[Rfam]
RNA: Yersinia sRNA 276
RNA sequence: GACCGACAUCAGCGACUCAUUUUGUGAGCCCUGGCCGACCGCCAGAUAGGCAUUCAUCCCCAGCUCUUUCAUCUGCUGUUCGCCGAUGACGCGAGUGGUAAUAUUUUUGCUGUAGUUGUCGGCUAACUGACGUGCCUGUGACGCCAGAUACGCGGCGUUACAAAUAUUUGGCGGCAUAUUGCUGAGAUCUUUUGC
Numbered sequence: 001g002a003c004c005g006a007c008a009u010c011a012g013c014g015a016c017u018c019a020u021u022u023u024g025u026g027a028g029c030c031c032u033g034g035c036c037g038a039c040c041g042c043c044a045g046a047u048a049g050g051c052a053u054u055c056a057u058c059c060c061c062a063g064c065u066c067u068u069u070c071a072u073c074u075g076c077u078g079u080u081c082g083c084c085g086a087u088g089a090c091g092c093g094a095g096u097g098g099u100a101a102u103a104u105u106u107u108u109g110c111u112g113u114a115g116u117u118g119u120c121g122g123c124u125a126a127c128u129g130a131c132g133u134g135c136c137u138g139u140g141a142c143g144c145c146a147g148a149u150a151c152g153c154g155g156c157g158u159u160a161c162a163a164a165u166a167u168u169u170g171g172c173g174g175c176a177u178a179u180u181g182c183u184g185a186g187a188u189c190u191u192u193u194g195c
Stems, first nucleotide, its partner, number of pairs: 005189002012032001014030001016028005033043003050059001062077003078135002081132002084129002087126001091123002095119003099112002102109002137162002140159006167186006